The family of this 75-nucleotide RNA sequence from Clostridiales bacterium KLE1615 is "RT-6 RNA".
It scores 69 bits against the family's covariance model.
Pairs were carried over by alignment from the consensus structure, which is taken from published work.
NCBI's taxonomy places the organism under Bacteria, Bacillati, Bacillota, Clostridia, Eubacteriales.
By type it is a small RNA.

[Rfam]
RNA sequence: UGCUUUACAAGUAUGUUGUAAAGGAAUGGUAUUGUUGUCAACAGUUCUAACAAACAUUUAUAAGAAAUGGUUUGA
Numbered sequence: 001u002g003c004u005u006u007a008c009a010a011g012u013a014u015g016u017u018g019u020a021a022a023g024g025a026a027u028g029g030u031a032u033u034g035u036u037g038u039c040a041a042c043a044g045u046u047c048u049a050a051c052a053a054a055c056a057u058u059u060a061u062a063a064g065a066a067a068u069g070g071u072u073u074g075a
Stems, first nucleotide, its partner, number of pairs: 003023008055069005